A member of the RNA family "SmY spliceosomal RNA" from Steinernema hermaphroditum, 79 nucleotides long.
[Rfam]
RNA sequence: UCGACCUUUUGCUAACUGACAGGGUCUUACAGAAGACUCGAAGCACAUUUUUUGGAGACUUGUCCAUUAGGACGAGUUA
Numbered sequence: 001u002c003g004a005c006c007u008u009u010u011g012c013u014a015a016c017u018g019a020c021a022g023g024g025u026c027u028u029a030c031a032g033a034a035g036a037c038u039c040g041a042a043g044c045a046c047a048u049u050u051u052u053u054g055g056a057g058a059c060u061u062g063u064c065c066a067u068u069a070g071g072a073c074g075a076g077u078u079a
Base pairs, nucleotide, nucleotide: 022039023038024037026035027034028033057078058077059076060075061074062073063072064071065070
The base pairs follow the family's consensus structure, which is taken from published work. A search with the family's covariance model found it, with a score of 50 bits. On this family, see MacMorris et al., RNA 2007: "A novel family of C. elegans snRNPs contains proteins associated with trans-splicing". The family's RNA type in Rfam is spliceosomal small nuclear RNA.